RNA sequence: CCGAGAGUCAAAAUGGUUGUGAUGUGUGGAUAUAUGUCAUAUCACAGCCAUUUUUGACGAGUUGGG
Numbered sequence: 001c002c003g004a005g006a007g008u009c010a011a012a013a014u015g016g017u018u019g020u021g022a023u024g025u026g027u028g029g030a031u032a033u034a035u036g037u038c039a040u041a042u043c044a045c046a047g048c049c050a051u052u053u054u055u056g057a058c059g060a061g062u063u064g065g066g
Stems, first nucleotide, its partner, number of pairs: 007058007014050009025041003
Source information
The record is a 66-nucleotide RNA from Cryptotermes secundus, which matches "mir-2 microRNA precursor family" in Rfam. The literature on the family includes a 2001 paper in Science by Lee and Ambros, "An extensive class of small RNAs in Caenorhabditis elegans". The family has 56 seed sequences and 918 matches in Rfam 15.1.